[Rfam]
RNA sequence: AUUCCUUCUGUCGUGUUUCCACGAUUGAUGCAAUGUCAGAUGCUUCA
Number, nucleotide and partner (000 for none) at each position: 001a000002u000003u000004c000005c000006u000007u000008c000009u000010g025011u024012c023013g022014u000015g000016u000017u000018u000019c000020c000021a000022c013023g012024a011025u010026u000027g000028a000029u000030g000031c000032a044033a000034u042035g000036u000037c000038a000039g000040a000041u000042g034043c000044u032045u000046c000047a000
RNA: Plastid-ycf3 group II-D1 intron
Organism: Amborella trichopoda